[Rfam]
The family of this 203-nucleotide RNA from Paenibacillus piri is "c-di-AMP riboswitch aptamer (ydaO/yuaA leader)".
RNA sequence: GCUUUUUUAUCGCUGAGUCCUUGGAUGAACAAGGAACGGGGGAACCAAAGGAACGGAUGCGCAUUCGUCGGCCUUAAGACGGCUGCCAUGUAUUCCGGCUCCAUGGGGUGAAUCCCGGCAGUGCAAGCUACUUGCACCCGGGUAGGGCGACUCUCACGCCCGAAUCCGACAGCUAACCUCGUAAGCGUACCGGGAGAGGCAAC
Number, nucleotide and partner (000 for none) at each position: 001g000002c000003u000004u000005u000006u000007u000008u000009a000010u000011c187012g186013c185014u184015g000016a000017g000018u035019c034020c033021u032022u031023g030024g000025a000026u000027g000028a000029a000030c023031a022032a021033g020034g019035a018036a182037c181038g180039g179040g178041g177042g000043a000044a000045c000046c105047a104048a000049a000050g000051g000052a000053a000054c000055g000056g000057a000058u000059g000060c000061g000062c000063a000064u000065u000066c000067g000068u000069c000070g000071g000072c000073c000074u000075u000076a000077a000078g000079a000080c000081g000082g000083c000084u000085g000086c000087c000088a000089u000090g000091u000092a000093u000094u000095c000096c000097g000098g000099c000100u000101c000102c000103a000104u047105g046106g167107g166108g165109u000110g000111a000112a000113u000114c142115c141116c140117g139118g000119c000120a000121g000122u000123g000124c000125a000126a000127g000128c000129u000130a000131c000132u000133u000134g000135c000136a000137c000138c000139c117140g116141g115142g114143u000144a000145g161146g160147g159148c158149g000150a000151c000152u000153c000154u000155c000156a000157c000158g148159c147160c146161c145162g000163a000164a000165u108166c107167c106168g000169a000170c000171a000172g000173c000174u000175a000176a000177c041178c040179u039180c038181g037182u036183a000184a014185g013186c012187g011188u000189a000190c000191c000192g000193g000194g000195a000196g000197a000198g000199g000200c000201a000202a000203c000